The family of this 56-nucleotide sequence from Vagococcus zengguangii is "Ribosomal protein L13 leader". From the family's description: This family is a putative r-protein leader autoregulatory structure found in B. subtilis and other low-GC Gram-positive bacteria. It is located in the 5' untranslated regions of mRNAs encoding the L13-S9 (rplM-rpsI) ribosomal protein operon. The family's RNA type in Rfam is cis-regulatory leader. NCBI's taxonomy places the organism under Bacteria, Bacillati, Bacilli, Enterococcaceae, Vagococcus.

RNA sequence: GGUAUUGUUUGCCCCAUGAUAAGCCCCGGAAACUUGUUAUGAAAGUCAAACAUUUA
Numbered sequence: 001g002g003u004a005u006u007g008u009u010u011g012c013c014c015c016a017u018g019a020u021a022a023g024c025c026c027c028g029g030a031a032a033c034u035u036g037u038u039a040u041g042a043a044a045g046u047c048a049a050a051c052a053u054u055u056a
Stems, first nucleotide, its partner, number of pairs: 006052006015041009